[Rfam]
RNA: RNA Staph. aureus E (RoxS)
RNA sequence: GUGAAACGAUUCACAUACAAACAUAUACCCCUUUGUUUGACCGUGAAAAAUUUCUCCCAUCCCCUUUGUUGUCUAUUAAAGACAAGGAAAACGCCCUGGCAAUUAUGCCGGGGCGUUUUC
Numbered sequence: 001g002u003g004a005a006a007c008g009a010u011u012c013a014c015a016u017a018c019a020a021a022c023a024u025a026u027a028c029c030c031c032u033u034u035g036u037u038u039g040a041c042c043g044u045g046a047a048a049a050a051u052u053u054c055u056c057c058c059a060u061c062c063c064c065u066u067u068g069u070u071g072u073c074u075a076u077u078a079a080a081g082a083c084a085a086g087g088a089a090a091a092c093g094c095c096c097u098g099g100c101a102a103u104u105a106u107g108c109c110g111g112g113g114c115g116u117u118u119u120c
Stems, first nucleotide, its partner, number of pairs: 003054004011046004018039006070086001090117011